[Rfam]
RNA sequence: UGAGCGUUAUGAUGAUGGAAUUUUUUCCAAGUGUCUAGCUCAAGUCUCUCCUAAAAGGCGUUUUGCCUUUUAGG
Numbered sequence: 001u002g003a004g005c006g007u008u009a010u011g012a013u014g015a016u017g018g019a020a021u022u023u024u025u026u027c028c029a030a031g032u033g034u035c036u037a038g039c040u041c042a043a044g045u046c047u048c049u050c051c052u053a054a055a056a057g058g059c060g061u062u063u064u065g066c067c068u069u070u071u072a073g074g
Stems, first nucleotide, its partner, number of pairs: 002041004011035003017028004050074009
Record summary:
Rfam assigns this 74-nucleotide RNA from Marinilactibacillus sp. 15R to the family "L17 ribosomal protein downstream element". Lineage of the source: Bacteria > Bacillota > Lactobacillales > Carnobacteriaceae > Marinilactibacillus. It is annotated as a cis-regulatory element.